Shown here is a 175-nucleotide RNA from Amycolatopsis rhizosphaerae, a member of the family "M-box riboswitch aptamer (ykoK leader)".
NCBI's taxonomy places the organism under Bacteria, Bacillati, Actinomycetota, Pseudonocardiales, Amycolatopsis.
About the family: M-box riboswitch, also know as ykoK leader is described as a metaloregulatory RNA that sense divalent metals and function as a genetic control element of genes related to divalent metal transport in bacteria. It was first reported upstream of the B.subtilis ykoK gene and genes with related functions in other bacteria.
Nucleotides: 175
Stems, first nucleotide, its partner, number of pairs: 005171004010166001011161002013097001015156003020150003025146008039115005045075001047073003055066004082106004088100003117134005
Number, partner (000 for none) and nucleotide at each position: 001000c002000g003000g004000g005171c006170a007169c008168c009000u010166c011161g012160u013097u014000a015156g016155g017154u018000g019000a020150g021149g022148c023000u024000c025146c026145u027144g028143u029142c030141c031140g032139g033000a034000c035000a036000c037000a038000g039115g040114c041113c042112a043111c044000u045075g046000a047073u048072c049071u050000g051000a052000c053000g054000a055066c056065g057064u058063c059000g060000a061000g062000a063058g064057a065056c066055g067000c068000c069000c070000a071049a072048g073047a074000c075045c076000a077000g078000g079000a080000c081000a082106g083105g084104u085103a086000u087000c088100c089099c090098c091000g092000g093000g094000u095000u096000a097013a098090g099089g100088g101000g102000u103085u104084a105083c106082c107000c108000g109000a110000a111043g112042u113041g114040g115039c116000u117134u118133c119132c120131c121130g122000c123000c124000c125000c126000g127000c128000c129000g130121c131120g132119g133118g134117a135000c136000a137000c138000g139032c140031c141030g142029g143028g144027c145026a146025g147000u148022g149021c150020c151000a152000a153000a154017g155016c156015u157000c158000u159000u160012a161011c162000g163000u164000g165000a166010g167000u168008g169007g170006u171005g172000c173000a174000u175000c